[Rfam]
RNA sequence: AAAGCUAGCUAGACAGUCGCCGCUUACGCAAGUGAGGGGAGGAAAGUCCGGGCUGCACAGAGCAAGAUGACGGCUAACGGCCGUACGCCGUGAGGCGAGGAAUAGGGCCACAGAGACGAGCAUAUUCAGUUAUGGUGAAACGCGGUAACCUCCAUCUGCAGCAAGACCAAAUAGGCUGGUGCAUUCACCUCGGUGAAUAAGGCGUGGCUCGCGUUACCAGCGGGUAGGUUGCUUGAGUGUACAAGUAAUUGUAUGCCUAGAUGAAUGACUGUUACGCACAGCAAUGUGCGACAGAACCCGGCUUAUCGGCUAGCUUUUUUC
Numbered sequence: 001a002a003a004g005c006u007a008g009c010u011a012g013a014c015a016g017u018c019g020c021c022g023c024u025u026a027c028g029c030a031a032g033u034g035a036g037g038g039g040a041g042g043a044a045a046g047u048c049c050g051g052g053c054u055g056c057a058c059a060g061a062g063c064a065a066g067a068u069g070a071c072g073g074c075u076a077a078c079g080g081c082c083g084u085a086c087g088c089c090g091u092g093a094g095g096c097g098a099g100g101a102a103u104a105g106g107g108c109c110a111c112a113g114a115g116a117c118g119a120g121c122a123u124a125u126u127c128a129g130u131u132a133u134g135g136u137g138a139a140a141c142g143c144g145g146u147a148a149c150c151u152c153c154a155u156c157u158g159c160a161g162c163a164a165g166a167c168c169a170a171a172u173a174g175g176c177u178g179g180u181g182c183a184u185u186c187a188c189c190u191c192g193g194u195g196a197a198u199a200a201g202g203c204g205u206g207g208c209u210c211g212c213g214u215u216a217c218c219a220g221c222g223g224g225u226a227g228g229u230u231g232c233u234u235g236a237g238u239g240u241a242c243a244a245g246u247a248a249u250u251g252u253a254u255g256c257c258u259a260g261a262u263g264a265a266u267g268a269c270u271g272u273u274a275c276g277c278a279c280a281g282c283a284a285u286g287u288g289c290g291a292c293a294g295a296a297c298c299c300g301g302c303u304u305a306u307c308g309g310c311u312a313g314c315u316u317u318u319u320u321c
Stems, first nucleotide, its partner, number of pairs: 001317010011306001012273007020039002023036005044304003048301005053161004060210004065157005070084005086097004100152002105150002107146003121134004165230004175221006201215005237256008
Dot-bracket structure: ((((((((((((((((((.((.(((((....))))).))....[[[.[[[[[((((...[[[[.((((((((((.....))))).((((....))))..((...(((((...........((((......)))).........)))..)))))))))))))...((((......((((((....................(((((.]]]]))))))))))).....))))......((((((((....))))))))..........))))))).......................]]]]]]]].).))))))))))....
RNA: Bacterial RNase P class A
Organism: Methylophilaceae bacterium 11